[Rfam]
RNA: Iron response element I
RNA sequence: UUUUCUGCUUCAACAGUGCUUGAACUGAACCAG
Numbered sequence: 001u002u003u004u005c006u007g008c009u010u011c012a013a014c015a016g017u018g019c020u021u022g023a024a025c026u027g028a029a030c031c032a033g
Base pairs, nucleotide, nucleotide: 001033002032003029004028005027007025009024010023011022012021013020014018